Shown here is a 74-nucleotide sequence from Pseudomonas fluvialis, a member of the family "tRNA".
From the family's description: Transfer RNA (tRNA) molecules are approximately 80 nucleotides in length.
The base pairs follow the family's consensus structure, which is taken from published work.
The family's RNA type in Rfam is transfer RNA.
Taxonomically the source falls in Pseudomonas (Bacteria, Pseudomonadota, Gammaproteobacteria, Pseudomonadales).
RNA sequence: GUCCCGGUAGCUCAAUUGGAUAGAGCGUCCCCCUCCUAAGGGGAAGGUUGGAGGUUCGAUCCCUCUCCGGGACG
Numbered sequence: 001g002u003c004c005c006g007g008u009a010g011c012u013c014a015a016u017u018g019g020a021u022a023g024a025g026c027g028u029c030c031c032c033c034u035c036c037u038a039a040g041g042g043g044a045a046g047g048u049u050g051g052a053g054g055u056u057c058g059a060u061c062c063c064u065c066u067c068c069g070g071g072a073c074g
Stems, first nucleotide, its partner, number of pairs: 001073007010026004028044005050066005